[Rfam]
RNA sequence: UAACCCUUGAAAUUUGUCCAGUGAGAUAAAUAAGGGUGCAAAUACAGGCGUAAAAGCAGGCGACCUGUAUCUUCAAGCGGCUGACCCCGCAGGAAAGCACCCUUUGCUUAAGAGCAGAGGGUGCUUUUUUAU
Number, nucleotide and partner (000 for none) at each position: 001u000002a000003a037004c036005c035006c034007u033008u032009g031010a000011a000012a000013u030014u029015u028016g027017u026018c025019c000020a000021g000022u000023g000024a000025g018026a017027u016028a015029a014030a013031u009032a008033a007034g006035g005036g004037u003038g000039c000040a000041a000042a070043u069044a068045c067046a066047g064048g000049c062050g061051u060052a000053a000054a000055a000056g000057c000058a000059g000060g051061c050062g049063a000064c047065c000066u046067g045068u044069a043070u042071c000072u000073u000074c000075a000076a000077g000078c000079g000080g000081c000082u000083g000084a000085c000086c000087c000088c000089g000090c000091a000092g000093g000094a127095a126096a125097g124098c123099a122100c121101c120102c119103u118104u117105u116106g115107c114108u000109u000110a000111a000112g000113a000114g107115c106116a105117g104118a103119g102120g101121g100122u099123g098124c097125u096126u095127u094128u000129u000130u000131a000132u000
Record summary
The family of this 132-nucleotide RNA from Salsuginibacillus halophilus is "PyrR binding site". By type it is a cis-regulatory element. Pairs were carried over by alignment from the consensus structure, which is taken from published work. It scores 57 bits against the family's covariance model. Rfam's curators write: This family represents the PyrR binding site and terminator structure. This RNA structure is found upstream of a variety of genes involved in pyrimidine biosynthesis and transport.